SAM (S-adenosyl methionine) riboswitch aptamer: a 116-nucleotide RNA sequence from Cellulomonas cellasea. It scores 111 bits against the family's covariance model. The family's consensus secondary structure is taken from published work. From the family's description: SAM-IV is a mRNA element that regulates gene expression via direct sensing of S-adenosylmethionine (SAM or AdoMet). SAM-IV riboswitches share conserved nucleotide positions with the previously described SAM-I riboswitches sequence analysis and molecular recognition experiments suggest that SAM-I and SAM-IV riboswitches share similar ligand binding sites, but have different scaffolds.

[Rfam]
RNA sequence: GGUCAUGAGUGCCAGCACGAAGCCCCGGCUUGCUGGCCGGCAACCCUCCUCCGCGGUGGGGUGCCCCGGGUGACGACCUGGCCGUGCCGCCGAUCGGCGCACGGCAAGCGCGGGGU
Numbered sequence: 001g002g003u004c005a006u007g008a009g010u011g012c013c014a015g016c017a018c019g020a021a022g023c024c025c026c027g028g029c030u031u032g033c034u035g036g037c038c039g040g041c042a043a044c045c046c047u048c049c050u051c052c053g054c055g056g057u058g059g060g061g062u063g064c065c066c067c068g069g070g071u072g073a074c075g076a077c078c079u080g081g082c083c084g085u086g087c088c089g090c091c092g093a094u095c096g097g098c099g100c101a102c103g104g105c106a107a108g109c110g111c112g113g114g115g116u
Stems, first nucleotide, its partner, number of pairs: 001078004009038001011037006021030002039065003044061003048056002081105007089098003